[Rfam]
A member of the RNA family "glmS glucosamine-6-phosphate activated ribozyme aptamer" from Bacillus manliponensis, 157 nucleotides long. About the family: This entry contains a glucosamine-6-phosphate activated ribozyme that is found in the mRNA for GlmS. GlmS is an enzyme that uses fructose-6-phosphate and glutamine to generate glucosamine-6-phosphate. The ribozyme catalyses self cleavage of the glmS mRNA that is thought to regulate GlmS activity. The match comes from Rfam's covariance-model search (127 bits). The source organism's lineage runs through Bacteria, Bacillati, Caryophanales, Bacillaceae and Bacillus. The family's RNA type in Rfam is riboswitch.
RNA sequence: UAGAAAUACAAAGCGCCAGAACUACAUGAUGUGUAGUUGACGAGGAGGAGUUUUAUCGAAGUUUCGGCGGAUGACUCCCGGUUGUUCAUCACAACCGAAAACUUUUGCUUAAAGCGUUAAGGUGACUUAAUGGACAAAGGUAAAAGUGUGAUGAGAG
Numbered sequence: 001u002a003g004a005a006a007u008a009c010a011a012a013g014c015g016c017c018a019g020a021a022c023u024a025c026a027u028g029a030u031g032u033g034u035a036g037u038u039g040a041c042g043a044g045g046a047g048g049a050g051u052u053u054u055a056u057c058g059a060a061g062u063u064u065c066g067g068c069g070g071a072u073g074a075c076u077c078c079c080g081g082u083u084g085u086u087c088a089u090c091a092c093a094a095c096c097g098a099a100a101a102c103u104u105u106u107g108c109u110u111a112a113a114g115c116g117u118u119a120a121g122g123u124g125a126c127u128u129a130a131u132g133g134a135c136a137a138a139g140g141u142a143a144a145a146g147u148g149u150g151a152u153g154a155g156a157g
Stems, first nucleotide, its partner, number of pairs: 020038008047078005056067004079097006101147007115132007